[Rfam]
RNA sequence: AGUCAAUGAUGACUUAUCUGUAAGAGUAGUGGACAGAAGUGGUUUCUGACUAACAUCACACUGAGACU
Numbered sequence: 001a002g003u004c005a006a007u008g009a010u011g012a013c014u015u016a017u018c019u020g021u022a023a024g025a026g027u028a029g030u031g032g033a034c035a036g037a038a039g040u041g042g043u044u045u046c047u048g049a050c051u052a053a054c055a056u057c058a059c060a061c062u063g064a065g066a067c068u
Base pairs, nucleotide, nucleotide: 001068002067003066004065
A member of the RNA family "Small nucleolar RNA SNORD75" from Betta splendens, 68 nucleotides long. By type it is a C/D-box small nucleolar RNA. The family has 5 seed sequences and 767 matches in Rfam 15.1. Its family is annotated with nucleolus and RNA processing in the Gene Ontology.